The record is a 177-nucleotide sequence from Staphylococcus haemolyticus, which matches "Lysine riboswitch aptamer" in Rfam.
RNA sequence: AGAAAUUGAUGAGGCGCAUCAAUCAUCAGUAUAUAUUAGAUAAACUGUCUGCAACAGCUAAUAUAGAAAGGGUGCGAUGCCGAAAUGAAUCAUAAUCGCAGCUAUGAUUUGUUGGACUUUGUGGUUAAGAGCUGAAAGUUUGUCAUUAUUAUUUAAUAAUGGAGUGCAUCACUUGUA
Numbered sequence: 001a002g003a004a005a006u007u008g009a010u011g012a013g014g015c016g017c018a019u020c021a022a023u024c025a026u027c028a029g030u031a032u033a034u035a036u037u038a039g040a041u042a043a044a045c046u047g048u049c050u051g052c053a054a055c056a057g058c059u060a061a062u063a064u065a066g067a068a069a070g071g072g073u074g075c076g077a078u079g080c081c082g083a084a085a086u087g088a089a090u091c092a093u094a095a096u097c098g099c100a101g102c103u104a105u106g107a108u109u110u111g112u113u114g115g116a117c118u119u120u121g122u123g124g125u126u127a128a129g130a131g132c133u134g135a136a137a138g139u140u141u142g143u144c145a146u147u148a149u150u151a152u153u154u155a156a157u158a159a160u161g162g163a164g165u166g167c168a169u170c171a172c173u174u175g176u177a
Stems, first nucleotide, its partner, number of pairs: 007171005016080005024072001032065008084113011114141007122134004143162007

Rfam's curators put it in the seed alignment.